[Rfam]
RNA sequence: ACCACUGGGCAUUGCCCCCAGUUUCCCCCAAAUUUGGGCAUCGGUACCCGAGUCUUCCAAUCGACUGGGCGUUGCCCCUGGACACCGGGGACUGCCCCCCCGGGGUCCACUCACCUCCAGCAG
Numbered sequence: 001a002c003c004a005c006u007g008g009g010c011a012u013u014g015c016c017c018c019c020a021g022u023u024u025c026c027c028c029c030a031a032a033u034u035u036g037g038g039c040a041u042c043g044g045u046a047c048c049c050g051a052g053u054c055u056u057c058c059a060a061u062c063g064a065c066u067g068g069g070c071g072u073u074g075c076c077c078c079u080g081g082a083c084a085c086c087g088g089g090g091a092c093u094g095c096c097c098c099c100c101c102g103g104g105g106u107c108c109a110c111u112c113a114c115c116u117c118c119a120g121c122a123g
Stems, first nucleotide, its partner, number of pairs: 004022002007017004027038004044065002050058001052056001066109004076104003080100002
RNA: Insulin-like growth factor II IRES